[Rfam]
RNA sequence: UGCCAGUGACGAUAGAAAUUGUUCGUACCAUCUGAGAGAUCUCUUGUGACUCUUUGACGUCUCACAUAAUCCCAGCUCUCUGAGGCAA
Numbered sequence: 001u002g003c004c005a006g007u008g009a010c011g012a013u014a015g016a017a018a019u020u021g022u023u024c025g026u027a028c029c030a031u032c033u034g035a036g037a038g039a040u041c042u043c044u045u046g047u048g049a050c051u052c053u054u055u056g057a058c059g060u061c062u063c064a065c066a067u068a069a070u071c072c073c074a075g076c077u078c079u080c081u082g083a084g085g086c087a088a
Base pairs, nucleotide, nucleotide: 001087002086003085004084
Shown here is an 88-nucleotide RNA sequence from Kingdonia uniflora, a member of the family "small nucleolar RNA snoR117". A search with the family's covariance model found it, with a score of 48 bits. The organism belongs to Kingdonia, within Eukaryota. Rfam links the family to the GO terms nucleolus and RNA processing. The base pairs follow the family's consensus structure, which was predicted with RNAalifold. Rfam classes the family as a C/D-box small nucleolar RNA.